[Rfam]
RNA sequence: GAGGUGAUGAGCCGGCAUCCGGCAGCGCGUGGCGCCCCCGGGUGUUUUUUG
Numbered sequence: 001g002a003g004g005u006g007a008u009g010a011g012c013c014g015g016c017a018u019c020c021g022g023c024a025g026c027g028c029g030u031g032g033c034g035c036c037c038c039c040g041g042g043u044g045u046u047u048u049u050u051g
Stems, first nucleotide, its partner, number of pairs: 016044007025035004

This 51-nucleotide RNA from Nordella sp. HKS 07 belongs to the Rfam family "ffh sRNA". A reference for the family is Meyer et al. (2009), "Identification of candidate structured RNAs in the marine organism 'Candidatus Pelagibacter ubique'", BMC Genomics. Rfam classes the family as a small RNA.